RNA: Small nucleolar RNA SNORD125
RNA sequence: GAACUGAGCAGCCUCUCCUGAUGAUUCUUCUUCCUGAGCAGCUCUCGUGAUGAGCAAACUGAGCCUCUAAGAAGUUGACUGAAGGGGCUGCUUCCUC
Numbered sequence: 001g002a003a004c005u006g007a008g009c010a011g012c013c014u015c016u017c018c019u020g021a022u023g024a025u026u027c028u029u030c031u032u033c034c035u036g037a038g039c040a041g042c043u044c045u046c047g048u049g050a051u052g053a054g055c056a057a058a059c060u061g062a063g064c065c066u067c068u069a070a071g072a073a074g075u076u077g078a079c080u081g082a083a084g085g086g087g088c089u090g091c092u093u094c095c096u097c
Stems, first nucleotide, its partner, number of pairs: 007092009